[Rfam]
RNA: mir-5345 microRNA precursor family
RNA sequence: GUGUGCUCAAUAAGGCACUGGAUUGGUCAGUUGAGUUUUCUGAGCGAAACUGGGCCAUUUCCAUUGUCUGGCCGAG
Numbered sequence: 001g002u003g004u005g006c007u008c009a010a011u012a013a014g015g016c017a018c019u020g021g022a023u024u025g026g027u028c029a030g031u032u033g034a035g036u037u038u039u040c041u042g043a044g045c046g047a048a049a050c051u052g053g054g055c056c057a058u059u060u061c062c063a064u065u066g067u068c069u070g071g072c073c074g075a076g
Base pairs, nucleotide, nucleotide: 006076007075008074013069014068015067016066017065019063020062021061022058024057025056026055027053028052029051030050031049032048035045036044037043